[Rfam]
RNA sequence: AAUAGAGAAAGGCAAAUCUAUUGAAAAAUAGAGACGCAAAACCACAGAUCUAAAGUGAAAAUUCACAAUGAUGGCUGGGUUACCUGA
Numbered sequence: 001a002a003u004a005g006a007g008a009a010a011g012g013c014a015a016a017u018c019u020a021u022u023g024a025a026a027a028a029u030a031g032a033g034a035c036g037c038a039a040a041a042c043c044a045c046a047g048a049u050c051u052a053a054a055g056u057g058a059a060a061a062u063u064c065a066c067a068a069u070g071a072u073g074g075c076u077g078g079g080u081u082a083c084c085u086g087a
Stems, first nucleotide, its partner, number of pairs: 012037002017032006040081004045077003048072003055066004
Rfam assigns this 87-nucleotide RNA from Gracilibacillus thailandensis to the family "c-di-GMP-I riboswitch aptamer". Pairs were carried over by alignment from the consensus structure, which is taken from published work. The source organism's lineage runs through Bacteria, Bacillota, Bacilli, Bacillaceae and Gracilibacillus.